About this RNA:
Rfam assigns this 89-nucleotide sequence from Actinomyces sp. 2119 to the family "ZMP/ZTP riboswitch aptamer (pfl RNA motif)". Rfam links the family to the GO terms one-carbon metabolic process and regulation of purine nucleotide biosynthetic process. The base pairs follow the family's consensus structure, which is taken from published work.
RNA sequence: UGUGGUGGCCGUAACUGGCGAGGGUGGGCCACCACCGGGGAGCGGCCUGGUCCGUCGUGGAGGGGACGUCGUCCGCCUGGGCGUCCCGC
Numbered sequence: 001u002g003u004g005g006u007g008g009c010c011g012u013a014a015c016u017g018g019c020g021a022g023g024g025u026g027g028g029c030c031a032c033c034a035c036c037g038g039g040g041a042g043c044g045g046c047c048u049g050g051u052c053c054g055u056c057g058u059g060g061a062g063g064g065g066a067c068g069u070c071g072u073c074c075g076c077c078u079g080g081g082c083g084u085c086c087c088g089c
Stems, first nucleotide, its partner, number of pairs: 007047006015039002017077004024035004066084005